A member of the RNA family "U8 small nucleolar RNA" from Helobdella robusta, 146 nucleotides long. Rfam links the family to the GO terms nucleolus and RNA processing. It scores 43 bits against the family's covariance model. It is annotated as a C/D-box small nucleolar RNA. Taxonomically the source falls in Helobdella (Eukaryota, Opisthokonta, Metazoa, Hirudinea). The literature on the family includes a 1997 paper in Mol Cell Biol by Peculis, "The sequence of the 5' end of the U8 small nucleolar RNA is critical for 5.8S and 28S rRNA maturation".

RNA sequence: CAAUUAGUACGGUAUAUUCUUACCUGUCAAUCUUAAUAAGAUUGUCAGUGUAAGCGAUGAUGACAUUGGUAGUUAUGAUUACUCAGGAAUUAUAACGAACCUGAUUGGUCAGUGGCUUGCAACGGCCGUUGGUCAGUCCGUCUGAG
Number, nucleotide and partner (000 for none) at each position: 001c000002a000003a000004u000005u000006a000007g000008u000009a000010c000011g000012g000013u000014a000015u000016a000017u000018u000019c000020u000021u000022a000023c000024c048025u047026g046027u000028c044029a043030a042031u041032c040033u039034u000035a000036a000037u000038a000039a033040g032041a031042u030043u029044g028045u000046c026047a025048g024049u000050g000051u000052a000053a000054g000055c000056g000057a000058u000059g000060a000061u000062g000063a000064c000065a000066u000067u000068g000069g000070u000071a000072g000073u000074u000075a000076u000077g102078a000079u000080u099081a000082c097083u095084c000085a000086g000087g000088a000089a000090u000091u000092a000093u000094a000095a083096c000097g082098a000099a080100c000101c000102u077103g000104a000105u000106u135107g134108g133109u132110c131111a130112g129113u128114g127115g000116c000117u000118u000119g000120c000121a000122a000123c000124g000125g000126c000127c114128g113129u112130u111131g110132g109133u108134c107135a106136g000137u000138c000139c000140g000141u000142c000143u000144g000145a000146g000